Shown here is a 123-nucleotide RNA sequence, a member of the family "Betaproteobacteria-1 RNA". The sequence is in the family's curated seed alignment. It is annotated as a small RNA.
[Rfam]
RNA sequence: UUCUUAGCUGGGGAUUCACCACCACCAGCGGCUAAGACGAAAGUGCUACUGGGGGAAUAAAGGAUGUAACAGCACACAAGUCGGUGGCGAAGAAAGAGCCGAUUCCUUGAACGUCUUUCGGGU
Numbered sequence: 001u002u003c004u005u006a007g008c009u010g011g012g013g014a015u016u017c018a019c020c021a022c023c024a025c026c027a028g029c030g031g032c033u034a035a036g037a038c039g040a041a042a043g044u045g046c047u048a049c050u051g052g053g054g055g056a057a058u059a060a061a062g063g064a065u066g067u068a069a070c071a072g073c074a075c076a077c078a079a080g081u082c083g084g085u086g087g088c089g090a091a092g093a094a095a096g097a098g099c100c101g102a103u104u105c106c107u108u109g110a111a112c113g114u115c116u117u118u119c120g121g122g123u
Base pairs, nucleotide, nucleotide: 002037003036004035005034006033007032008031009030010029025052026051027050028049043075044074045073046072047071061107062106063105064104080103081102082101083100084099085098092119093118094117095116096115097114